[Rfam]
RNA sequence: UUAUUAAAAGGAAAUGGCGUCUUCCUACUUAACCGCUUUUCAUCGAAAAGCUGAUGGCACCUACAAAUAG
Numbered sequence: 001u002u003a004u005u006a007a008a009a010g011g012a013a014a015u016g017g018c019g020u021c022u023u024c025c026u027a028c029u030u031a032a033c034c035g036c037u038u039u040u041c042a043u044c045g046a047a048a049a050g051c052u053g054a055u056g057g058c059a060c061c062u063a064c065a066a067a068u069a070g
Base pairs, nucleotide, nucleotide: 010025011024012023013022016061017060019058020057021056035051036050037049038048039047040046041045
Notes: Fluoride riboswitch aptamer (crcB RNA motif): a 70-nucleotide RNA from Arachidicoccus soli. Gene Ontology terms of the family: response to fluoride and positive regulation of gene expression. The match comes from Rfam's covariance-model search (53 bits).